[Rfam]
RNA sequence: AGCAAGAGACAAACAUAGACAGGGAACGAGCAGAGCAUGGAUGGAGCUAUCAACAGAAAAGCUUCCUGUUCUGGCUCUACUCAUGCACUGCCUCUUCCCUGGCUGUGCCUCUUUUCUUUUCU
Numbered sequence: 001a002g003c004a005a006g007a008g009a010c011a012a013a014c015a016u017a018g019a020c021a022g023g024g025a026a027c028g029a030g031c032a033g034a035g036c037a038u039g040g041a042u043g044g045a046g047c048u049a050u051c052a053a054c055a056g057a058a059a060a061g062c063u064u065c066c067u068g069u070u071c072u073g074g075c076u077c078u079a080c081u082c083a084u085g086c087a088c089u090g091c092c093u094c095u096u097c098c099c100u101g102g103c104u105g106u107g108c109c110u111c112u113u114u115u116c117u118u119u120u121c122u
Base pairs, nucleotide, nucleotide: 016105017104018103020101021100022099023098024097025096026095028093030091031090032089033088035086036085037084038083039082040081044077045076
The record is a 122-nucleotide RNA sequence from Morella rubra, which matches "MIR408 microRNA precursor family" in Rfam. Rfam links the family to the GO terms RISC complex and miRNA-mediated post-transcriptional gene silencing. The literature on the family includes a 2004 paper in Plant Cell by Sunkar and Zhu, "Novel and stress-regulated microRNAs and other small RNAs from Arabidopsis". Lineage of the source: Eukaryota > Viridiplantae > Streptophyta > Euphyllophyta > Morella.